[Rfam]
RNA sequence: UUAGCCAAGAGGGCCGUUAACCACAUCAAGUCCGUGUGGAAGGACCUUUUGGAGGACU
Numbered sequence: 001u002u003a004g005c006c007a008a009g010a011g012g013g014c015c016g017u018u019a020a021c022c023a024c025a026u027c028a029a030g031u032c033c034g035u036g037u038g039g040a041a042g043g044a045c046c047u048u049u050u051g052g053a054g055g056a057c058u
Stems, first nucleotide, its partner, number of pairs: 005052008014043002021039006
Record summary:
Hepatitis C virus stem-loop SL8001 RNA: a 58-nucleotide RNA sequence. A reference for the family is Pirakitikulr et al. (2016), "The Coding Region of the HCV Genome Contains a Network of Regulatory RNA Structures", Mol Cell.